[Rfam]
Guanidine-I riboswitch aptamer: a 109-nucleotide RNA from Ciceribacter lividus. The organism belongs to Ciceribacter, within Bacteria. Rfam links the family to the GO term regulation of gene expression. The literature on the family includes a 2021 paper in RNA by Trachman RJ 3rd and Ferre-D'Amare, "An uncommon [K(+)(Mg(2+))2] metal ion triad imparts stability and selectivity to the Guanidine-I riboswitch".
RNA sequence: AGAGUUGGCCGCUAGGGUUCCGGUGCUUGUAUUGGCACGGCUGGUCCGAGAGCAGCCACCGGCAGGGAACAGCCUGUCGGGUGCACGGCGGGACAAAAGCCCGGGAGAC
Numbered sequence: 001a002g003a004g005u006u007g008g009c010c011g012c013u014a015g016g017g018u019u020c021c022g023g024u025g026c027u028u029g030u031a032u033u034g035g036c037a038c039g040g041c042u043g044g045u046c047c048g049a050g051a052g053c054a055g056c057c058a059c060c061g062g063c064a065g066g067g068a069a070c071a072g073c074c075u076g077u078c079g080g081g082u083g084c085a086c087g088g089c090g091g092g093a094c095a096a097a098a099g100c101c102c103g104g105g106a107g108a109c
Stems, first nucleotide, its partner, number of pairs: 007057003011053002015047002020044002022041001023038005058082002060079006084104001086107001090102003